[Rfam]
The family of this 195-nucleotide sequence from Pseudomonas sp. M47T1 is "RgsA sRNA". The match comes from Rfam's covariance-model search (180 bits). Rfam classes the family as a small RNA. This small RNA (sRNA) was computationally identified in the genome of the opportunistic pathogen Pseudomonas aeruginosa and its expression verified by northern blot analysis. P16 sRNA appears to be conserved across several Pseudomonas species and Azotobacter vinelandii. In these species it is consistently located downstream of a predicted TatD deoxyribonuclease gene. P16 has a predicted Rho independent terminator at the 3' end but the function of P16 is unknown.
RNA sequence: CAAUGGAUGCCGACGUAUUCCAAAUCUGUUUAAAAAAUAGUCAACCGGCAGUGGCGUAGUGCGAAAGGUAGCCAAUACUUGAAGUGUCGGCGCGCUCACACCCCCCAAGUGGCACGCCGGUAAAGGUGCCCAUGGACCGUGCGCCUUUGUUUUACUCCUAAUGGUCUUAACCCGGAUUCACCCCCCAGAACCCGG
Number, nucleotide and partner (000 for none) at each position: 001c000002a000003a000004u000005g000006g000007a000008u000009g000010c000011c000012g000013a000014c000015g000016u000017a000018u000019u000020c000021c000022a000023a000024a000025u000026c000027u000028g000029u000030u000031u000032a000033a000034a000035a000036a000037a000038u000039a000040g165041u164042c163043a162044a000045c000046c000047g000048g000049c000050a000051g000052u000053g000054g000055c000056g000057u000058a000059g000060u000061g000062c000063g000064a000065a000066a000067g000068g000069u000070a000071g000072c000073c000074a000075a000076u000077a000078c000079u000080u000081g000082a000083a000084g000085u000086g121087u120088c119089g118090g000091c116092g115093c000094g113095c000096u000097c111098a110099c109100a000101c000102c000103c000104c000105c000106c000107a000108a000109g099110u098111g097112g000113c094114a000115c092116g091117c000118c089119g088120g087121u086122a148123a147124a146125g145126g144127u143128g142129c141130c139131c000132a000133u000134g000135g000136a000137c000138c000139g130140u000141g129142c128143g127144c126145c125146u124147u123148u122149g000150u000151u000152u000153u000154a000155c000156u000157c000158c000159u000160a000161a000162u043163g042164g041165u040166c000167u000168u000169a000170a000171c000172c195173c194174g193175g192176a000177u190178u189179c188180a000181c000182c000183c000184c000185c000186c000187a000188g179189a178190a177191c000192c175193c174194g173195g172